[Rfam]
RNA: tRNA
Organism: Collinsella aerofaciens
RNA sequence: GGGAGUUUGCCCGAGUGGUUAAUGGGGACGGGCUGUAAACCCGUUGGCUCUGCCUACAUAGGUUCGAAUCCUAUAGCUCCCA
Numbered sequence: 001g002g003g004a005g006u007u008u009g010c011c012c013g014a015g016u017g018g019u020u021a022a023u024g025g026g027g028a029c030g031g032g033c034u035g036u037a038a039a040c041c042c043g044u045u046g047g048c049u050c051u052g053c054c055u056a057c058a059u060a061g062g063u064u065c066g067a068a069u070c071c072u073a074u075a076g077c078u079c080c081c082a
Base pairs, nucleotide, nucleotide: 001081002080003079004078005077006076007075010026011025012024013023028044029043030042031041032040058074059073060072061071062070